This 74-nucleotide RNA from Kordiimonas sediminis belongs to the Rfam family "tRNA". The family's consensus secondary structure is taken from published work. The family's RNA type in Rfam is transfer RNA. NCBI's taxonomy places the organism under Bacteria, Alphaproteobacteria, Kordiimonadales, Kordiimonadaceae, Kordiimonas. A search with the family's covariance model found it, with a score of 61 bits.
RNA sequence: CGGGGAGUGGCGCAGCCUGGUAGCGCACCUGUUUUGGGUACAGGGGGUCGCUAGUUCGAAUCUAGUCUCCCCGA
Numbered sequence: 001c002g003g004g005g006a007g008u009g010g011c012g013c014a015g016c017c018u019g020g021u022a023g024c025g026c027a028c029c030u031g032u033u034u035u036g037g038g039u040a041c042a043g044g045g046g047g048u049c050g051c052u053a054g055u056u057c058g059a060a061u062c063u064a065g066u067c068u069c070c071c072c073g074a
Stems, first nucleotide, its partner, number of pairs: 001073007010026004028044005050066005